[Rfam]
RNA sequence: GCGCCCGUCGUUGGGGAGUAGCCGAUUUCCGAUAUUCAGGAAAUGUACGUGUCAACAUACUCGUUGUAAAACGUGGCGCGUACGGACUGUGUUUCAUGCAGUCAGGCGAGACCAUAGGCACAUUCACUGCUGAUUACCGGGGCAGUGAUUGUGUAUAUGGAUAUCCCGGUCAGGACGCAU
Dot-bracket structure: .........................(((............))).((((((((((.......((((....))))))))))))))...(..(...................................................................................)..)...
This 180-nucleotide RNA sequence from Atlantibacter hermannii belongs to the Rfam family "Manganese Mn2+ riboswitch aptamer (yybP-ykoY)".